[Rfam]
The record is a 102-nucleotide sequence from Thermolongibacillus altinsuensis, which matches "Purine riboswitch aptamer" in Rfam.

RNA sequence: CCGAAUAUUGCAAAAAUACAUCGUAUAAUCUUGGGAAUAUGGCCCGAGAGUCUCUACCAAGCUACCGUAAAUAGCUUGACUACGAUGUAUAAUGUGCAGGGG
Dot-bracket structure: .................((((((((...(((((((.......)))))))........(((((((.......)))))))..))))))))..............
Numbered sequence: 001c002c003g004a005a006u007a008u009u010g011c012a013a014a015a016a017u018a019c020a021u022c023g024u025a026u027a028a029u030c031u032u033g034g035g036a037a038u039a040u041g042g043c044c045c046g047a048g049a050g051u052c053u054c055u056a057c058c059a060a061g062c063u064a065c066c067g068u069a070a071a072u073a074g075c076u077u078g079a080c081u082a083c084g085a086u087g088u089a090u091a092a093u094g095u096g097c098a099g100g101g102g
Stems, first nucleotide, its partner, number of pairs: 018088008029049007058078007

About the family: Riboswitches are metabolite binding domains within certain messenger RNAs that serve as precision sensors for their corresponding targets.
Rfam links the family to the GO term purine nucleobase biosynthetic process.